[Rfam]
Rfam assigns this 73-nucleotide RNA to the family "tRNA". It is one of the family's seed sequences. Transfer RNA (tRNA) molecules are approximately 80 nucleotides in length. It is annotated as a transfer RNA.

RNA sequence: GCUCCUAAAGGAUAAUAGCUCAUCCGUUGGUCUUAGGAACCAAAAACUCUUGGUGCAACUCCAAGUAGCAGCU
Numbered sequence: 001g002c003u004c005c006u007a008a009a010g011g012a013u014a015a016u017a018g019c020u021c022a023u024c025c026g027u028u029g030g031u032c033u034u035a036g037g038a039a040c041c042a043a044a045a046a047c048u049c050u051u052g053g054u055g056c057a058a059c060u061c062c063a064a065g066u067a068g069c070a071g072c073u
Base pairs, nucleotide, nucleotide: 001072002071003070005068006067007066010025011024012023013022027043028042029041030040031039049065050064051063052062053061